[Rfam]
The record is a 133-nucleotide sequence from Callorhinus ursinus, which matches "Small nucleolar RNA SNORA68" in Rfam. The family has 26 seed sequences and 1,079 matches in Rfam 15.1. For this family Rfam cites "The family of box ACA small nucleolar RNAs is defined by an evolutionarily conserved secondary structure and ubiquitous sequence elements essential for RNA accumulation" (Ganot et al., Genes Dev, 1997). Rfam's curators write: U68 is a member of the H/ACA class of small nucleolar RNAs (snoRNAs) which act as guides in the the modification of uridines to pseudouridines. A search with the family's covariance model found it, with a score of 143 bits.
RNA sequence: CAAGCACCUCAACCCAAGAACUGCUGUUUCUCAUAGCAGCGGUUUAAACAACGGUGCUAACAGCAAGUGGAUCUCGUCGCCUUUGGGGGGCUGUGGCCAUGCCCCUCAAAGUGAAUUCGGAGGUUCUACAUGC
Dot-bracket structure: ..((((((..........((((((((((......))))))))))........))))))..........(((((((.....(((((((((((.........)))))))))))........))))))).......